[Rfam]
A member of the RNA family "TPP riboswitch aptamer (THI element)" from Hymenobacter cellulosilyticus, 109 nucleotides long.
Vitamin B(1) in its active form thiamin pyrophosphate (TPP) is an essential coenzyme that is synthesised by coupling of pyrimidine and thiazole moieties in bacteria.
Taxonomically the source falls in Hymenobacter (Bacteria, Pseudomonadati, Cytophagia, Hymenobacteraceae).
RNA sequence: GCAUAGUUUUAGGGGUGCCCUACCAGCGGCUAGCUGCCGUGGGGCUGAGAUCAUACCCAUUGAACCUGUCCGGGUAAUGCCGGCGAAGGGAACAAACGAUCCUCGAACG
Numbered sequence: 001g002c003a004u005a006g007u008u009u010u011a012g013g014g015g016u017g018c019c020c021u022a023c024c025a026g027c028g029g030c031u032a033g034c035u036g037c038c039g040u041g042g043g044g045c046u047g048a049g050a051u052c053a054u055a056c057c058c059a060u061u062g063a064a065c066c067u068g069u070c071c072g073g074g075u076a077a078u079g080c081c082g083g084c085g086a087a088g089g090g091a092a093c094a095a096a097c098g099a100u101c102c103u104c105g106a107a108c109g
Stems, first nucleotide, its partner, number of pairs: 006097004012058003016053001017045007065089003070083004